A member of the RNA family "tp2" from Morganella morganii, 123 nucleotides long.
Pairs were carried over by alignment from the consensus structure, which was predicted with RNAalifold.
The organism belongs to Morganella morganii subsp. morganii, within Bacteria.
For this family Rfam cites "Computational identification of noncoding RNAs in E. coli by comparative genomics" (Rivas et al., Curr Biol, 2001).

[Rfam]
RNA sequence: UGUAUUCCUUAUAGUUUAUCUGUUUCUAAUGAUAUUCGGAGCCUAUCUUCACGUAUCCCGCUUUAACGGUGACGGGCGACGUGAAGAUAGGCCCGGCUAUAUAUUGCCGCUGAUGCAUAGGUC
Numbered sequence: 001u002g003u004a005u006u007c008c009u010u011a012u013a014g015u016u017u018a019u020c021u022g023u024u025u026c027u028a029a030u031g032a033u034a035u036u037c038g039g040a041g042c043c044u045a046u047c048u049u050c051a052c053g054u055a056u057c058c059c060g061c062u063u064u065a066a067c068g069g070u071g072a073c074g075g076g077c078g079a080c081g082u083g084a085a086g087a088u089a090g091g092c093c094c095g096g097c098u099a100u101a102u103a104u105u106g107c108c109g110c111u112g113a114u115g116c117a118u119a120g121g122u123c
Stems, first nucleotide, its partner, number of pairs: 002107003022097002039094001041092007050083005057076004
Dot-bracket structure: .(((.................((...............(.(((((((..(((((..((((............))))..)))))..))))))).).)).......)))................
The match comes from Rfam's covariance-model search (56 bits).